[Rfam]
Overview: The record is a 51-nucleotide RNA from Micromonospora craniellae, which matches "eL15-Euryarchaeota ribosomal protein leader" in Rfam. Taxonomically the source falls in Micromonospora (Bacteria, Bacillati, Actinomycetota, Actinomycetes). The literature on the family includes a 2020 paper in BMC Microbiol by Eckert and Weinberg, "Discovery of 20 novel ribosomal leader candidates in bacteria and archaea". It scores 35 bits against the family's covariance model. Pairs were carried over by alignment from the consensus structure, which is taken from published work.
RNA sequence: CGGGCGUACCCGUUGGGAUGUGCCCGAGCGGCCGAUCGGGUGAACCACCGG
Numbered sequence: 001c002g003g004g005c006g007u008a009c010c011c012g013u014u015g016g017g018a019u020g021u022g023c024c025c026g027a028g029c030g031g032c033c034g035a036u037c038g039g040g041u042g043a044a045c046c047a048c049c050g051g
Base pairs, nucleotide, nucleotide: 001012002011003010004009014047015046016045022041023040024039025038026037
Dot-bracket structure: ((((....)))).(((.....(((((..........)))))...)))....